[Rfam]
RNA: Glycine riboswitch aptamer
Organism: Ancylobacter novellus
RNA sequence: AAUGGUUAUGCGGGAGAGACCGACAGUCCUCCCGGACAUGUGUCGGCGCCGACGGAGCAACCCCCCAGGAAACUCUCAGGCACCACGGACCGCAUAAUCAGG
Number, nucleotide and partner (000 for none) at each position: 001a000002a000003u000004g000005g000006u097007u096008a095009u094010g093011c092012g091013g090014g000015a000016g000017a000018g000019a000020c046021c045022g044023a043024c042025a041026g000027u000028c000029c000030u000031c000032c000033c000034g000035g000036a000037c000038a000039u000040g000041u025042g024043u023044c022045g021046g020047c000048g081049c080050c079051g077052a076053c000054g000055g075056a074057g073058c000059a000060a000061c068062c000063c000064c000065c000066c000067a000068g061069g000070a000071a000072a000073c057074u056075c055076u052077c051078a000079g050080g049081c048082a000083c000084c000085a000086c000087g000088g000089a000090c013091c012092g011093c010094a009095u008096a007097a006098u000099c000100a000101g000102g000